[Rfam]
This 133-nucleotide sequence from Callosobruchus maculatus belongs to the Rfam family "Small Cajal body specific RNA 8".
RNA sequence: UGGAAGUCUCAUACGUGUACAAACUCAAUUAUAUUUAAUUUGUACAUCACUUUACUUCCUAGAGUAUCAAUGCUUUCUGAUGACCAUAGUUGGAUGAAGUAUUGGACUGUGGACAGAUACGGAGCAAACAGUA
Numbered sequence: 001u002g003g004a005a006g007u008c009u010c011a012u013a014c015g016u017g018u019a020c021a022a023a024c025u026c027a028a029u030u031a032u033a034u035u036u037a038a039u040u041u042g043u044a045c046a047u048c049a050c051u052u053u054a055c056u057u058c059c060u061a062g063a064g065u066a067u068c069a070a071u072g073c074u075u076u077c078u079g080a081u082g083a084c085c086a087u088a089g090u091u092g093g094a095u096g097a098a099g100u101a102u103u104g105g106a107c108u109g110u111g112g113a114c115a116g117a118u119a120c121g122g123a124g125c126a127a128a129c130a131g132u133a
Stems, first nucleotide, its partner, number of pairs: 002059006015047004022040002025037001071126006084112003089107003
From the family's description: scaRNAs are a specific class of small nuclear RNAs which localise to the Cajal bodies and guide the modification of RNA polymerase II transcribed spliceosomal RNAs U1, U2, U4, U5 and U12. U92 belong to the H/ACA box class of guide RNAs as it has the predicted hairpin-hinge-hairpin-tail structure, conserved H/ACA-box motifs and is found associated with GAR1.
Its family is annotated with nucleolus, Cajal body and RNA processing in the Gene Ontology.
Rfam 15.1 lists 955 matches to the family in 741 species.
The match comes from Rfam's covariance-model search (67 bits).